RNA sequence: CGUACGAAAUGGCAAGAUCAGCGAAAGCUGAUUACACAAAACUAUAGGCGCUAAAGUCAAAUGACUAUGCUAGCCAGGUGUCGAA
Numbered sequence: 001c002g003u004a005c006g007a008a009a010u011g012g013c014a015a016g017a018u019c020a021g022c023g024a025a026a027g028c029u030g031a032u033u034a035c036a037c038a039a040a041a042c043u044a045u046a047g048g049c050g051c052u053a054a055a056g057u058c059a060a061a062u063g064a065c066u067a068u069g070c071u072a073g074c075c076a077g078g079u080g081u082c083g084a085a
Base pairs, nucleotide, nucleotide: 012037017032018031019030020029021028022027040079042077043076047075048074050070051069056065057064058063
This 85-nucleotide RNA sequence from Saliterribacillus persicus belongs to the Rfam family "c-di-GMP-I riboswitch aptamer". Taxonomically the source falls in Saliterribacillus (Bacteria, Bacillati, Bacillota, Bacillaceae).